Rfam assigns this 109-nucleotide sequence from Thermothielavioides terrestris to the family "tRNA".
Rfam's curators write: Transfer RNA (tRNA) molecules are approximately 80 nucleotides in length. Their secondary structure includes four short double-helical elements and three loops (D, anti-codon, and T loops). Further hydrogen bonds mediate the characteristic L-shaped molecular structure. tRNAs have two regions of fundamental functional importance: the anti-codon, which is responsible for specific mRNA codon recognition, and the 3' end, to which the tRNAs corresponding amino acid is attached (by aminoacyl-tRNA synthetases). tRNAs cope with the degeneracy of the genetic code in two manners: having more than one tRNA (with a specific anti-codon) for a particular amino acid; and 'wobble' base-pairing, i.e. permitting non-standard base-pairing at the 3rd anti-codon position.
NCBI's taxonomy places the organism under Eukaryota, Fungi, leotiomyceta, Sordariales, Thermothielavioides terrestris.
By type it is a transfer RNA.
RNA sequence: GUCACUUUGGCGGAGUGGUUAACGCGCUGCCCUGCUAAGUGCAGCGCCCCUUAGCAGUAUUAGUUAGGCAGUUCCUUCGGGAGCGUAGGUUCGAAUCCUACAGGUGACG
Numbered sequence: 001g002u003c004a005c006u007u008u009g010g011c012g013g014a015g016u017g018g019u020u021a022a023c024g025c026g027c028u029g030c031c032c033u034g035c036u037a038a039g040u041g042c043a044g045c046g047c048c049c050c051u052u053a054g055c056a057g058u059a060u061u062a063g064u065u066a067g068g069c070a071g072u073u074c075c076u077u078c079g080g081g082a083g084c085g086u087a088g089g090u091u092c093g094a095a096u097c098c099u100a101c102a103g104g105u106g107a108c109g
Stems, first nucleotide, its partner, number of pairs: 001108007010025003027071005085101005
Dot-bracket structure: (((((((..(((..........))).(((((...................................))))).............(((((.......)))))))))))).